[Rfam]
RNA: epsC RNA
Organism: Aeribacillus pallidus
RNA sequence: AGGUGAUGUCUCUUUACCUUUAUCAAUAGAGGCACUCGGCCGCACUGUGGGUGCUUCCAAAAGGACACCUUAGACGCUAGUCGUCGAUGGUGCGGUGUGAGGGCGGGUUAGAUGCCCG
Numbered sequence: 001a002g003g004u005g006a007u008g009u010c011u012c013u014u015u016a017c018c019u020u021u022a023u024c025a026a027u028a029g030a031g032g033c034a035c036u037c038g039g040c041c042g043c044a045c046u047g048u049g050g051g052u053g054c055u056u057c058c059a060a061a062a063g064g065a066c067a068c069c070u071u072a073g074a075c076g077c078u079a080g081u082c083g084u085c086g087a088u089g090g091u092g093c094g095g096u097g098u099g100a101g102g103g104c105g106g107g108u109u110a111g112a113u114g115c116c117c118g
Stems, first nucleotide, its partner, number of pairs: 001019004007034007035101004039096008049070005054064003073085004104118005